[Rfam]
RNA: small nucleolar RNA snoR135
Nucleotides: 147
Base pairs, nucleotide, nucleotide: 004069005068006067007066008065009064010063015045016044017043018042019041020040081141082140083139084138085137086136087135088134089133090132091131095128096127097126098125
Number, partner (000 for none) and nucleotide at each position: 001000a002000a003000a004069g005068c006067a007066g008065g009064g010063a011000u012000u013000g014000u015045g016044u017043g018042u019041a020040u021000c022000g023000g024000c025000u026000u027000u028000g029000u030000g031000c032000u033000a034000c035000a036000a037000u038000c039000a040020g041019u042018g043017c044016a045015c046000u047000c048000u049000g050000u051000u052000u053000c054000c055000g056000a057000a058000a059000g060000a061000g062000u063010u064009c065008c066007c067006u068005g069004c070000g071000a072000g073000a074000u075000a076000g077000a078000u079000c080000u081141g082140g083139g084138g085137a086136a087135g088134g089133u090132g091131g092000g093000c094000a095128g096127u097126u098125g099000u100000g101000u102000u103000u104000c105000c106000u107000c108000u109000c110000a111000c112000c113000c114000g115000u116000u117000g118000a119000a120000a121000u122000u123000c124000u125098c126097a127096a128095c129000a130000a131091u132090c133089a134088u135087c136086u137085u138084c139083c140082c141081c142000a143000c144000a145000u146000c147000u